A member of the RNA family "Small nucleolar RNA SNORD45" from Canis lupus, 82 nucleotides long. Rfam links the family to the GO terms RNA processing and nucleolus. NCBI's taxonomy places the organism under Eukaryota, Eumetazoa, Dipnotetrapodomorpha, Tetrapoda, Canis lupus. A search with the family's covariance model found it, with a score of 75 bits.
RNA sequence: GGUCAGUGAUGUGUUGGCAUGUAUUACCUGACUAAAUGGCUGAUGUGUGAUAACACAAGCUCUAGAAUUACGCUGAGACCUU
Numbered sequence: 001g002g003u004c005a006g007u008g009a010u011g012u013g014u015u016g017g018c019a020u021g022u023a024u025u026a027c028c029u030g031a032c033u034a035a036a037u038g039g040c041u042g043a044u045g046u047g048u049g050a051u052a053a054c055a056c057a058a059g060c061u062c063u064a065g066a067a068u069u070a071c072g073c074u075g076a077g078a079c080c081u082u
Stems, first nucleotide, its partner, number of pairs: 001080004

Rfam 15.1 lists 1,629 matches to the family in 521 species.